[Rfam]
RNA sequence: CUAUCCCGAUGGGGGAUCAAGGUAGAAACGUUCACGUCGCGAUCCCUGUUAGGUAAUACUUGUUAGGUAAUGCAAAUUCUACC
Number, nucleotide and partner (000 for none) at each position: 001c000002u000003a000004u000005c000006c000007c000008g000009a000010u000011g000012g000013g046014g045015g044016a043017u042018c041019a000020a000021g083022g082023u081024a080025g079026a078027a077028a000029c039030g038031u000032u000033c000034a000035c000036g000037u000038c030039g029040c000041g018042a017043u016044c015045c014046c013047u000048g000049u000050u072051a071052g000053g000054u000055a000056a000057u000058a000059c000060u000061u000062g000063u000064u000065a000066g000067g000068u000069a000070a000071u051072g050073c000074a000075a000076a000077u027078u026079c025080u024081a023082c022083c021
This 83-nucleotide sequence from Synaphobranchus kaupii belongs to the Rfam family "Mammalian CPEB3 ribozyme".
Pairs were carried over by alignment from the consensus structure, which is taken from published work.
The source organism's lineage runs through Eukaryota, Actinopterygii, Elopocephala, Synaphobranchidae and Synaphobranchus.